[Rfam]
RNA: Archaeal large subunit ribosomal RNA, nucleotides 913 to 1362
RNA sequence: CCUCUCGAAACAUGCCGUAGCAUGACCUGAUCUGAGAUCGACAGUGAGGUAGAGCACUGAUUGGGGAAGCUGGGGAAGAAAUUCCUCACUCUCCUGUCAAACUCCAAAUUCCCUGUCAUCAGCGACGAUCGGAAGUCCGCAUUACGGGGUAAGCUUGUAAUGCGUAAGGGAGACAACCCAGACCGUGGUUAAUGUCCCUCAGUGCAGGCUCAGUGUAAACACUGAAAGUAGUCCUGGGUCAAAGACAACUGGGAGGUGAGCUUAGAAGCAGCUACCCUUUAAAAAGUGCGUAACAGCUUACCAGUCAAGAUUCAGGGCGCUGAAAAUGGACGGGGCUUAAGCCUGCCACAGAUACCACGGACCAUACGAAUUGUAUGAUGGCGUAGAGAGGCGUCCUGCAUGGGCGGAAGCAGGGUUGCAAGAUCCUGUGGACCGUGCAGGAAUGAAAAU
Numbered sequence: 001c002c003u004c005u006c007g008a009a010a011c012a013u014g015c016c017g018u019a020g021c022a023u024g025a026c027c028u029g030a031u032c033u034g035a036g037a038u039c040g041a042c043a044g045u046g047a048g049g050u051a052g053a054g055c056a057c058u059g060a061u062u063g064g065g066g067a068a069g070c071u072g073g074g075g076a077a078g079a080a081a082u083u084c085c086u087c088a089c090u091c092u093c094c095u096g097u098c099a100a101a102c103u104c105c106a107a108a109u110u111c112c113c114u115g116u117c118a119u120c121a122g123c124g125a126c127g128a129u130c131g132g133a134a135g136u137c138c139g140c141a142u143u144a145c146g147g148g149g150u151a152a153g154c155u156u157g158u159a160a161u162g163c164g165u166a167a168g169g170g171a172g173a174c175a176a177c178c179c180a181g182a183c184c185g186u187g188g189u190u191a192a193u194g195u196c197c198c199u200c201a202g203u204g205c206a207g208g209c210u211c212a213g214u215g216u217a218a219a220c221a222c223u224g225a226a227a228g229u230a231g232u233c234c235u236g237g238g239u240c241a242a243a244g245a246c247a248a249c250u251g252g253g254a255g256g257u258g259a260g261c262u263u264a265g266a267a268g269c270a271g272c273u274a275c276c277c278u279u280u281a282a283a284a285a286g287u288g289c290g291u292a293a294c295a296g297c298u299u300a301c302c303a304g305u306c307a308a309g310a311u312u313c314a315g316g317g318c319g320c321u322g323a324a325a326a327u328g329g330a331c332g333g334g335g336c337u338u339a340a341g342c343c344u345g346c347c348a349c350a351g352a353u354a355c356c357a358c359g360g361a362c363c364a365u366a367c368g369a370a371u372u373g374u375a376u377g378a379u380g381g382c383g384u385a386g387a388g389a390g391g392c393g394u395c396c397u398g399c400a401u402g403g404g405c406g407g408a409a410g411c412a413g414g415g416u417u418g419c420a421a422g423a424u425c426c427u428g429u430g431g432a433c434c435g436u437g438c439a440g441g442a443a444u445g446a447a448a449a450u
Base pairs, nucleotide, nucleotide: 001391002390003389004388005387006386011024012023013022014021015020026135027132028131029130030129031128032127036120037119038118040117041116042115043114044113046111047110052105053103054102059098060097061096063094064093065092066091067090072087073086074085075084076083077082139163140162141161142160143159144158145157146156147155168179169178170177183360184359185358186357187356188355189354193350194349195348202347204346205345206344207343208342209341227321228320229319231318232317233316234315235314236313237312238311239310240309248305249304250303251302252301254278255277256276259273260272261271279283284299288297289296362380363377364376365375366374367373392445394442395441396440397439398438399437400436401435402434403433410429411428412427413426414425415424416423417422